Shown here is a 98-nucleotide part of an RNA from Halopenitus malekzadehii, a member of the family "Archaeal large subunit ribosomal RNA". NCBI's taxonomy places the organism under Archaea, Methanobacteriati, Halobacteriales, Haloferacaceae, Halopenitus. A search with the family's covariance model found it, with a score of 2762 bits. The family's consensus secondary structure is taken from published work.
RNA sequence: GACAGGGCGUAGAAGGCUCUGUGGGUAACGAGCGACGCGCGAGCGUCCAGUAGAAGCCACAGAGAGCCGACGUCGUGUCGUACGUUUUGAAAAACGAC
Numbered sequence: 001g002a003c004a005g006g007g008c009g010u011a012g013a014a015g016g017c018u019c020u021g022u023g024g025g026u027a028a029c030g031a032g033c034g035a036c037g038c039g040c041g042a043g044c045g046u047c048c049a050g051u052a053g054a055a056g057c058c059a060c061a062g063a064g065a066g067c068c069g070a071c072g073u074c075g076u077g078u079c080g081u082a083c084g085u086u087u088u089g090a091a092a093a094a095c096g097a098c
Base pairs, nucleotide, nucleotide: 001079002078003077004076006074007073008072009071010070015068016067019062020061021060022059023058024057029053034047035046036045037044038043083096084095085094